Rfam assigns this 507-nucleotide part of an RNA from Encephalitozoon hellem to the family "Microsporidia small subunit ribosomal RNA". The sequence is in the family's curated seed alignment. The literature on the family includes a 2001 paper in Science by Yusupov et al., "Crystal structure of the ribosome at 5.5 A resolution". Lineage of the source: Eukaryota > Fungi > Microsporidia > Unikaryonidae > Encephalitozoon. Pairs were carried over by alignment from the consensus structure, which is taken from published work.
Nucleotides: 507
Stems, first nucleotide, its partner, number of pairs: 001385002003382003007379007016369002020333005025266001027264008035255002041056004065250003069246003076108006088099004112238002115236004121232001122230001123226003126222004133171003138166001139148003150163002153160001177214002180211001186205002189202005270289002274285002294323001299318006339361008390471001393467002396464001399460005405454001408451006415444001417442004423436005476499010
Number, partner (000 for none) and nucleotide at each position: 001385u002384g003382a004381c005380g006000g007379a008378a009377g010376g011375a012374c013373a014000c015000c016369a017368c018000a019000a020333g021332g022331a023330g024329u025266g026000g027264a028263g029262u030261g031260u032259g033258c034257g035255g036254c037000u038000u039000a040000a041056u042055u043054u044053g045000a046000c047000u048000c049000a050000a051000c052000g053044c054043g055042g056041g057000g058000c059000a060000a061000c062000u063000u064000a065250c066249c067248g068000g069246u070245u071244c072000u073000g074000a075000a076108g077107u078106g079105a080104g081103u082000g083000u084000g085000a086000g087000a088099g089098u090097g091096u092000u093000u094000u095000u096091a097090c098089a099088u100000g101000a102000u103081g104080c105079u106078u107077a108076c109000g110000g111000c112238g113237g114000u115236g116235g117234u118233g119000c120000a121232u122230g123226g124225c125224c126222g127221u128220u129219u130000u131000a132000a133171a134170u135169g136000g137000a138166u139148g140147g141146c142000g143000u144000g145000a146141g147140c148139u149000u150163u151162g152000g153160a154000u155000u156000a157000a158000g159000u160153u161000a162151c163150g164000u165000a166138a167000g168000a169135u170134g171133u172000g173000a174000g175000a176000c177214c178213c179000u180211u181000u182000u183000u184000g185000a186205c187204u188000g189202u190201g191200c192199u193198c194000u195000a196000u197000g198193g199192g200191g201190c202189a203000a204187g205186g206000g207000a208000g209000g210000a211180a212000u213178g214177g215000a216000a217000c218000a219129g220128a221127a222126c223000a224125g225124g226123u227000c228000c229000g230122u231000u232121a233118u234117g235116c236115c237113c238112u239000g240000a241000g242000a243000u244071g245070a246069a247000g248067c249066g250065g251000g252000c253000g254036g255035c256000a257034c258033g259032c260031g261030c262029a263028c264027u265000a266025c267000g268000a269000u270289a271288g272000a273000u274285g275284c276000c277000u278000a279000u280000g281000u282000g283000g284275g285274c286000u287000a288271c289270u290000g291000u292000g293000a294323g295000g296000g297000a298000u299318g300317a301316a302315g303314c304313u305000g306000u307000g308000u309000a310000a311000u312000g313304g314303g315302c316301u317300u318299c319000u320000g321000a322000a323294c324000g325000u326000g327000g328000a329024a330023u331022u332021c333020c334000u335000a336000g337000u338000a339361a340360g341359a342358a343357u344356g345355a346354u347000u348000g349000a350000a351000c352000a353000a354346g355345u356344u357343a358342u359341u360340u361339u362000g363000a364000a365000u366000g367000u368017g369016u370000c371000c372000c373013u374012g375011u376010c377009c378008u379007u380005u381004g382003u383000a384002c385001a386000c387000a388000c389000c390471g391000c392000c393467c394466g395000u396464c397000g398000c399460u400459a401458u402457c403456u404000a405454a406000g407000a408451u409450g410449a411448c412447g413446c414000a415444g416000u417442g418441g419440a420439c421000g422000a423436a424435g425434a426433u427432u428000g429000a430000g431000a432427g433426g434425u435424c436423u437000g438000a439420g440419u441418c442417u443000u444415u445000c446413g447412u448411g449410u450409u451408a452000g453000a454405u455000a456403a457402g458401a459400u460399a461000u462000a463000a464396g465000u466394c467393g468000u469000a470000a471390c472000a473000u474000g475000g476499c477498u478497g479496c480495u481494g482493u483492u484491g485490g486000a487000g488000a489000a490485c491484c492483a493482g494481c495480a496479g497478c498477a499476g500000g501000a502000u503000c504000a505000g506000u507000a